Rfam assigns this 81-nucleotide sequence to the family "skipping-rope RNA". It is one of the family's seed sequences. The base pairs follow the family's consensus structure, which is taken from published work.
RNA sequence: UAAAAAUGAGGUUGGAAAUGGUUCCCGACGCACUCUGCAAAGAGUACCUGAGAUGAUGGAUACGCCGCCCAUCCAUUUUUA
Numbered sequence: 001u002a003a004a005a006a007u008g009a010g011g012u013u014g015g016a017a018a019u020g021g022u023u024c025c026c027g028a029c030g031c032a033c034u035c036u037g038c039a040a041a042g043a044g045u046a047c048c049u050g051a052g053a054u055g056a057u058g059g060a061u062a063c064g065c066c067g068c069c070c071a072u073c074c075a076u077u078u079u080u081a
Stems, first nucleotide, its partner, number of pairs: 001081008011029005019067004031050001032045004055073005